The family of this 82-nucleotide sequence from Pelodiscus sinensis is "mir-130 microRNA precursor family".
RNA sequence: AGCAGGCGGGAGCUAGCUGCCACCCUGUGCUAUUGUCUCUAUCAGUAAGCAGUGCAGGGCAGCAGCUGGCUCCCUGCGAGCU
Numbered sequence: 001a002g003c004a005g006g007c008g009g010g011a012g013c014u015a016g017c018u019g020c021c022a023c024c025c026u027g028u029g030c031u032a033u034u035g036u037c038u039c040u041a042u043c044a045g046u047a048a049g050c051a052g053u054g055c056a057g058g059g060c061a062g063c064a065g066c067u068g069g070c071u072c073c074c075u076g077c078g079a080g081c082u
Stems, first nucleotide, its partner, number of pairs: 001082003005077001008074003012070007023059009
Taxonomically the source falls in Pelodiscus (Eukaryota, Eumetazoa, Craniata, Trionychia).